The family of this 75-nucleotide RNA sequence is "L13-Bacteroidia ribosomal protein leader". The family's consensus secondary structure is taken from published work. Rfam classes the family as a cis-regulatory leader.

[Rfam]
RNA sequence: GGGGAUACACUUAGAGUCCCCUGUGCGGUCGUGUUAAUAGUGGUGCAUUUGGCCGUGCCCCAUGGUUAGUGAAUC
Numbered sequence: 001g002g003g004g005a006u007a008c009a010c011u012u013a014g015a016g017u018c019c020c021c022u023g024u025g026c027g028g029u030c031g032u033g034u035u036a037a038u039a040g041u042g043g044u045g046c047a048u049u050u051g052g053c054c055g056u057g058c059c060c061c062a063u064g065g066u067u068a069g070u071g072a073a074u075c
Stems, first nucleotide, its partner, number of pairs: 001021006034069005040063004045058004